Shown here is a 95-nucleotide sequence from Papaver somniferum, a member of the family "MIR535 microRNA precursor family". For this family Rfam cites "Conservation and divergence of microRNAs and their functions in Euphorbiaceous plants" (Zeng et al., Nucleic Acids Res, 2010). Its family is annotated with RISC complex and miRNA-mediated post-transcriptional gene silencing in the Gene Ontology. A search with the family's covariance model found it, with a score of 78 bits. The source organism's lineage runs through Eukaryota, Viridiplantae, Tracheophyta, Papaveroideae and Papaver.

RNA sequence: CACUUUGCUUGACAACGAGAGAGAGCACUUUUGUCCGCACUCAUACAUAGGCCAUGGUUGUGUACAAGAGUGCUCUCCCUUGGUGUCAUUCGAUC
Numbered sequence: 001c002a003c004u005u006u007g008c009u010u011g012a013c014a015a016c017g018a019g020a021g022a023g024a025g026c027a028c029u030u031u032u033g034u035c036c037g038c039a040c041u042c043a044u045a046c047a048u049a050g051g052c053c054a055u056g057g058u059u060g061u062g063u064a065c066a067a068g069a070g071u072g073c074u075c076u077c078c079c080u081u082g083g084u085g086u087c088a089u090u091c092g093a094u095c
Stems, first nucleotide, its partner, number of pairs: 010088005016082002021077001023075001025073010